[Rfam]
RNA sequence: GCAACCUGCGCCUGGCGCACGGCAACCUGGUGGUGUUCCGCUCCAUGCUGGGCAUCUCGUGGAUGUGGUUCUUCGGCGCCGUGUUCCUGAGCCAGUUCCCGGCCUUCGCCAAGGAGGUGCUG
Numbered sequence: 001g002c003a004a005c006c007u008g009c010g011c012c013u014g015g016c017g018c019a020c021g022g023c024a025a026c027c028u029g030g031u032g033g034u035g036u037u038c039c040g041c042u043c044c045a046u047g048c049u050g051g052g053c054a055u056c057u058c059g060u061g062g063a064u065g066u067g068g069u070u071c072u073u074c075g076g077c078g079c080c081g082u083g084u085u086c087c088u089g090a091g092c093c094a095g096u097u098c099c100c101g102g103c104c105u106u107c108g109c110c111a112a113g114g115a116g117g118u119g120c121u122g
Stems, first nucleotide, its partner, number of pairs: 010049001012047001014044002017041002021037004026032001051121005057115002060112001062110001063105001065103001067099002071095002077089002081086001
A member of the RNA family "Burkholderia RNA 11" from Azohydromonas caseinilytica, 122 nucleotides long. Lineage of the source: Bacteria > Pseudomonadati > Pseudomonadota > Sphaerotilaceae > Azohydromonas. The family's consensus secondary structure was predicted with RNAfold. The match comes from Rfam's covariance-model search (93 bits). Its family is annotated with protein binding in the Gene Ontology. From the family's description: Co-purified with Hfq, expression confirmed by Northern blot. Predicted target marZ. Overlaps coding sequence.